[Rfam]
RNA sequence: CUGGCCUCCAGGGCCUUGUACACCCUAGGCUUUCAUUCAUUGUCUGCGCAUCCAGUGAAGGCCUACUGUGUGCCAGGCCCUCUACCAG
Numbered sequence: 001c002u003g004g005c006c007u008c009c010a011g012g013g014c015c016u017u018g019u020a021c022a023c024c025c026u027a028g029g030c031u032u033u034c035a036u037u038c039a040u041u042g043u044c045u046g047c048g049c050a051u052c053c054a055g056u057g058a059a060g061g062c063c064u065a066c067u068g069u070g071u072g073c074c075a076g077g078c079c080c081u082c083u084a085c086c087a088g
Stems, first nucleotide, its partner, number of pairs: 010081007018073006026065012
The record is an 88-nucleotide sequence from Trichechus manatus, which matches "mir-493 microRNA precursor family" in Rfam.
The source organism's lineage runs through Eukaryota, Craniata, Afrotheria, Sirenia and Trichechus manatus.
The base pairs follow the family's consensus structure, which was predicted with RNAalifold.